Shown here is a 239-nucleotide RNA sequence from Tenebrio molitor, a member of the family "RNase MRP". Rfam 15.1 lists 3,510 matches to the family in 2,315 species. The family's consensus secondary structure is taken from published work. Gene Ontology terms of the family: ribonuclease MRP complex, rRNA processing and ribonuclease MRP activity.
RNA sequence: CGGUUCUUCCAAGCCUAAUCGACGGGGUAACGUACAGAGUUUUCAUAACUCCCAACAACCCUGUGGAAGGUCCCCGGAUCUGUGGUAGAAAGUACCGCUGAGUUUUCUCAGUCAGAUACAGGCUACGCGGUUCUAGGAAAGGUUAUCUGUAAAACCGUAGGCUUGUAUUGUUGGUCAUAGCACAGGCAAUGUUAGGGUCACGAAAGUGACAACAAAACGGGGCCCAUUCUGGAAGAACU
Numbered sequence: 001c002g003g004u005u006c007u008u009c010c011a012a013g014c015c016u017a018a019u020c021g022a023c024g025g026g027g028u029a030a031c032g033u034a035c036a037g038a039g040u041u042u043u044c045a046u047a048a049c050u051c052c053c054a055a056c057a058a059c060c061c062u063g064u065g066g067a068a069g070g071u072c073c074c075c076g077g078a079u080c081u082g083u084g085g086u087a088g089a090a091a092g093u094a095c096c097g098c099u100g101a102g103u104u105u106u107c108u109c110a111g112u113c114a115g116a117u118a119c120a121g122g123c124u125a126c127g128c129g130g131u132u133c134u135a136g137g138a139a140a141g142g143u144u145a146u147c148u149g150u151a152a153a154a155c156c157g158u159a160g161g162c163u164u165g166u167a168u169u170g171u172u173g174g175u176c177a178u179a180g181c182a183c184a185g186g187c188a189a190u191g192u193u194a195g196g197g198u199c200a201c202g203a204a205a206g207u208g209a210c211a212a213c214a215a216a217a218c219g220g221g222g223c224c225c226a227u228u229c230u231g232g233a234a235g236a237a238c239u
Base pairs, nucleotide, nucleotide: 002239003238004237005236006235007234008233009232010231011230014196015195016194017193018192019191022064023063024062025061026060027059028058037051038050039049040048041047069224070223072222073221074220075219084096085095086094087093097112098111099110100109101108102107114168116166120163121162123160124159125158129156130155131154132153140146198209199208200207201206
The literature on the family includes a 1993 paper in FASEB J by Schmitt et al., "Secondary structure of RNase MRP RNA as predicted by phylogenetic comparison".